[Rfam]
RNA: Magnesium riboswitch aptamer (Magnesium responsive RNA element)
Organism: Mangrovibacter sp. MFB070
RNA sequence: CUUACCGGAGGACUCAUGGACCCUGAUCCAGCACCUCAUUUAACCGAGAACUACUUCACCCGGUAAGGCACGCCUUUUUCCGCCGUUGCCUUACUGGAACAUGUAAUGCAGCGGCGUCUU
Numbered sequence: 001c002u003u004a005c006c007g008g009a010g011g012a013c014u015c016a017u018g019g020a021c022c023c024u025g026a027u028c029c030a031g032c033a034c035c036u037c038a039u040u041u042a043a044c045c046g047a048g049a050a051c052u053a054c055u056u057c058a059c060c061c062g063g064u065a066a067g068g069c070a071c072g073c074c075u076u077u078u079u080c081c082g083c084c085g086u087u088g089c090c091u092u093a094c095u096g097g098a099a100c101a102u103g104u105a106a107u108g109c110a111g112c113g114g115c116g117u118c119u120u
Stems, first nucleotide, its partner, number of pairs: 001067008011057001017031001019029001037048001085112005091106004
Dot-bracket structure: ((((((((..(.....(.(.........).).....(..........)........)..)))))))).................(((((.((((........)))).)))))........